RNA: Small nucleolar RNA Z163/Z177 family
RNA sequence: UGGCCGGUGAUGAGUGAAACCUGAGUUGUACAGACACUCUUCAGUUGAAUGAAGUGCAAUGAAACACACGUGUCGCUCUCUGUCCA
Numbered sequence: 001u002g003g004c005c006g007g008u009g010a011u012g013a014g015u016g017a018a019a020c021c022u023g024a025g026u027u028g029u030a031c032a033g034a035c036a037c038u039c040u041u042c043a044g045u046u047g048a049a050u051g052a053a054g055u056g057c058a059a060u061g062a063a064a065c066a067c068a069c070g071u072g073u074c075g076c077u078c079u080c081u082g083u084c085c086a
Stems, first nucleotide, its partner, number of pairs: 001086003005082001